[Rfam]
RNA sequence: GUGAUAUAGGGACGAAAAGUAUCAUUUAUGGCUGCUUGCAGACAUAUAAAUGAUACCUUGAGGACCGAACAUACAUGAGGAAAAAAGCCGAUAGGCGAUUUCCGAAUGUAUGUAGCAUGUCGAGAGUACGAAGUACGGAGACAUGCGUAUAUCAC
Dot-bracket structure: ((((((...(..(..((.((((((((((((.(((....))).)..))))))))))).))..)..)...((((((((..((((....(((....)))...))))..)))))))).(((((((....((((...))))...)))))))...))))))

Shown here is a 155-nucleotide RNA sequence from Butyrivibrio sp. INlla14, a member of the family "Clostridiales-1 RNA". Rfam classes the family as a small RNA. It scores 107 bits against the family's covariance model. The family's consensus secondary structure is taken from published work. Taxonomically the source falls in Butyrivibrio (Bacteria, Bacillati, Bacillota, Lachnospiraceae).